[Rfam]
RNA sequence: UUCGUUGUUUCGCUUAAUCUUAUGUAAAGAGCGGGGGACCCAUUUUUGCAGCUUGUCUGCUUGGGGUGAAUUCUUACUUGAAGGGGCUAUUAGUUUCCAAGUCCUAACCCGACAGCUAACCCCGUCAGCGUCUAAAGGGAACGUGA
Numbered sequence: 001u002u003c004g005u006u007g008u009u010u011c012g013c014u015u016a017a018u019c020u021u022a023u024g025u026a027a028a029g030a031g032c033g034g035g036g037g038a039c040c041c042a043u044u045u046u047u048g049c050a051g052c053u054u055g056u057c058u059g060c061u062u063g064g065g066g067u068g069a070a071u072u073c074u075u076a077c078u079u080g081a082a083g084g085g086g087c088u089a090u091u092a093g094u095u096u097c098c099a100a101g102u103c104c105u106a107a108c109c110c111g112a113c114a115g116c117u118a119a120c121c122c123c124g125u126c127a128g129c130g131u132c133u134a135a136a137g138g139g140a141a142c143g144u145g146a
Stems, first nucleotide, its partner, number of pairs: 011130004018030003031125006041063002064110003072081002084104004
RNA: c-di-AMP riboswitch aptamer (ydaO/yuaA leader)